[Rfam]
RNA sequence: UGUAUUCACUGUAUUCGACUGUAUUCACGGCGUGAAAUAGGGGAUUACACUGUUUUUAAAACGAAAAGUGAAUCAAUUAACAUAAUAGACUCCU
Numbered sequence: 001u002g003u004a005u006u007c008a009c010u011g012u013a014u015u016c017g018a019c020u021g022u023a024u025u026c027a028c029g030g031c032g033u034g035a036a037a038u039a040g041g042g043g044a045u046u047a048c049a050c051u052g053u054u055u056u057u058a059a060a061a062c063g064a065a066a067a068g069u070g071a072a073u074c075a076a077u078u079a080a081c082a083u084a085a086u087a088g089a090c091u092c093c094u
Base pairs, nucleotide, nucleotide: 005088006087008086010084011083012082014080015079017078018077020075021074023073024072025071026070027069028068031063032062033061034056035055036054037053038052039051040050

The record is a 94-nucleotide sequence from Nicotiana attenuata, which matches "MIR6152 microRNA precursor family" in Rfam. Pairs were carried over by alignment from the consensus structure, which was predicted with RNAalifold. The match comes from Rfam's covariance-model search (90 bits). Lineage of the source: Eukaryota > Tracheophyta > asterids > Nicotianeae > Nicotiana. The family has 2 seed sequences and 5,807 matches in Rfam 15.1.